[Rfam]
RNA sequence: CGCAUGAGCGACUGCGAUCCGGCCCGACUCCGGUACCUGGUACGGCCGGGGCGG
Dot-bracket structure: ((((........)))).......(((.(((((((..........))))))))))
RNA: L17-Actino-Proteobacteria ribosomal protein leader
Organism: Nonomuraea jabiensis